RNA sequence: UUACUAGUCAGGCUCUGGCUAUACACCAGGACAGAGUAGGUCCUGGGUAUAACCAAAGCCCGACUGAACA
Numbered sequence: 001u002u003a004c005u006a007g008u009c010a011g012g013c014u015c016u017g018g019c020u021a022u023a024c025a026c027c028a029g030g031a032c033a034g035a036g037u038a039g040g041u042c043c044u045g046g047g048u049a050u051a052a053c054c055a056a057a058g059c060c061c062g063a064c065u066g067a068a069c070a
Stems, first nucleotide, its partner, number of pairs: 007064003011060004016055003020051004026040002029037001